Small nucleolar RNA SNORD24: an 83-nucleotide RNA from Trichosporon asahii.
The organism belongs to Trichosporon asahii var. asahii, within Eukaryota.
Gene Ontology terms of the family: RNA processing and nucleolus.
The family has 14 seed sequences and 2,843 matches in Rfam 15.1.
Pairs were carried over by alignment from the consensus structure, which was predicted with PFOLD.
[Rfam]
RNA sequence: GGGAAAUGAUGAUUUGUAUUAUAUUUGCUACUUCAGAGGGCUUGCCCGAUGAGACAACACUAUCCACCAAGAUCUCUGAUCCC
Numbered sequence: 001g002g003g004a005a006a007u008g009a010u011g012a013u014u015u016g017u018a019u020u021a022u023a024u025u026u027g028c029u030a031c032u033u034c035a036g037a038g039g040g041c042u043u044g045c046c047c048g049a050u051g052a053g054a055c056a057a058c059a060c061u062a063u064c065c066a067c068c069a070a071g072a073u074c075u076c077u078g079a080u081c082c083c
Stems, first nucleotide, its partner, number of pairs: 001083004